[Rfam]
RNA: Small nucleolar RNA Z247
Organism: Miscanthus lutarioriparius
RNA sequence: AUGCUGGGAGACGAGGAGAUUGCCUCCUACAUCCUCGCCGGCCUCGACGCUGACUUCAAUCCUGUCGUCUCCGCUAUGGCAGCGCGCACCGAGCCGCUGUCGCUUGGGGAACUCUACACCCAGCUAGUCAGCUGGGA
Numbered sequence: 001a002u003g004c005u006g007g008g009a010g011a012c013g014a015g016g017a018g019a020u021u022g023c024c025u026c027c028u029a030c031a032u033c034c035u036c037g038c039c040g041g042c043c044u045c046g047a048c049g050c051u052g053a054c055u056u057c058a059a060u061c062c063u064g065u066c067g068u069c070u071c072c073g074c075u076a077u078g079g080c081a082g083c084g085c086g087c088a089c090c091g092a093g094c095c096g097c098u099g100u101c102g103c104u105u106g107g108g109g110a111a112c113u114c115u116a117c118a119c120c121c122a123g124c125u126a127g128u129c130a131g132c133u134g135g136g137a
Stems, first nucleotide, its partner, number of pairs: 004136002007133002089107005